Rfam assigns this 379-nucleotide RNA sequence from Desulfoplanes formicivorans to the family "Bacterial RNase P class A". The family's RNA type in Rfam is ribozyme.
[Rfam]
RNA sequence: GGAGUUGGACAGACUGUCGCCGUGCCGAAUCGGCAGGGAGGAAAGUCCGGGCUCCACAGGGUAGGACGCUGGAUAACGUCCAGCGGGGGUGACCCCGGGAAAGUGCCACAGAAACAAACCGCCUGGCCCUCACGCGUGAGAGCGGGGUAAGGGUGAAAAGGUGGGGUAAGAGCCCACCAGCUGUCGUGGUGACACGGCAGGCUAGGCAAACCCCGUCUGGAGCAAGACCAAAUAGGAGGAUGGUACGGUCGGCCCGGCCAAUAUCCUCGGGUAGGUCGCUCGAGGCAUGGAGUAAUCCAUGUCCUAGAUGAAUGACAGUCACCCCGCCCUCACUCGUGGGGGCGGGGUACAGAACCCGGCUUAUCGUCCAACUCCAUUU
Numbered sequence: 001g002g003a004g005u006u007g008g009a010c011a012g013a014c015u016g017u018c019g020c021c022g023u024g025c026c027g028a029a030u031c032g033g034c035a036g037g038g039a040g041g042a043a044a045g046u047c048c049g050g051g052c053u054c055c056a057c058a059g060g061g062u063a064g065g066a067c068g069c070u071g072g073a074u075a076a077c078g079u080c081c082a083g084c085g086g087g088g089g090u091g092a093c094c095c096c097g098g099g100a101a102a103g104u105g106c107c108a109c110a111g112a113a114a115c116a117a118a119c120c121g122c123c124u125g126g127c128c129c130u131c132a133c134g135c136g137u138g139a140g141a142g143c144g145g146g147g148u149a150a151g152g153g154u155g156a157a158a159a160g161g162u163g164g165g166g167u168a169a170g171a172g173c174c175c176a177c178c179a180g181c182u183g184u185c186g187u188g189g190u191g192a193c194a195c196g197g198c199a200g201g202c203u204a205g206g207c208a209a210a211c212c213c214c215g216u217c218u219g220g221a222g223c224a225a226g227a228c229c230a231a232a233u234a235g236g237a238g239g240a241u242g243g244u245a246c247g248g249u250c251g252g253c254c255c256g257g258c259c260a261a262u263a264u265c266c267u268c269g270g271g272u273a274g275g276u277c278g279c280u281c282g283a284g285g286c287a288u289g290g291a292g293u294a295a296u297c298c299a300u301g302u303c304c305u306a307g308a309u310g311a312a313u314g315a316c317a318g319u320c321a322c323c324c325c326g327c328c329c330u331c332a333c334u335c336g337u338g339g340g341g342g343c344g345g346g347g348u349a350c351a352g353a354a355c356c357c358g359g360c361u362u363a364u365c366g367u368c369c370a371a372c373u374c375c376a377u378u379u
Base pairs, nucleotide, nucleotide: 001375002374003373004372005371006370007369008368009367010366011364012320013319014318015317016316017315018314020038021037023035024034025033026032027031043362044361045360047359048358049357050356051355052222053221054220055219059255060254061253062252064218065217066216067215068214069083070082071081072080073079084097085096086095087094088093098213099212103211104210105207106206107205119152120151121148122147123146124145126143127142129140130139131138132137160178161177162176163175164174165173180202181200182199183198184197185196186195187194188193226277227276228275229274236268237267238266239265240264241263247259248258249257250256284303285302286301287300288299289298290297291296